[Rfam]
This 114-nucleotide RNA from Pseudoxanthomonas suwonensis belongs to the Rfam family "Xanthomonadaceae sRNA asX1". It scores 108 bits against the family's covariance model. A reference for the family is Schmidtke et al. (2011), "Genome-wide transcriptome analysis of the plant pathogen Xanthomonas identifies sRNAs with putative virulence functions", Nucleic Acids Res. Taxonomically the source falls in Pseudoxanthomonas (Bacteria, Gammaproteobacteria, Lysobacterales, Lysobacteraceae).
Nucleotides: 114
Stems, first nucleotide, its partner, number of pairs: 003070009012060002017029003031056006039048002079108013
Number, partner (000 for none) and nucleotide at each position: 001000c002000a003070c004069c005068c006067a007066c008065c009064g010063c011062g012060g013059c014000a015000a016000u017029g018028c019027g020000u021000c022000g023000g024000g025000g026000g027019c028018g029017c030000g031056g032055g033054c034053u035052g036051g037000a038000a039048u040047u041000g042000g043000a044000a045000c046000a047040g048039g049000g050000g051036c052035c053034a054033g055032c056031c057000a058000c059013g060012c061000g062011c063010g064009u065008g066007g067006u068005g069004g070003g071000g072000a073000a074000g075000c076000c077000g078000a079108g080107g081106g082105g083104c084103c085102g086101g087100c088099a089098g090097u091096c092000g093000g094000g095000g096091g097090a098089c099088u100087g101086c102085c103084g104083g105082c106081c107080c108079c109000a110000u111000u112000u113000u114000u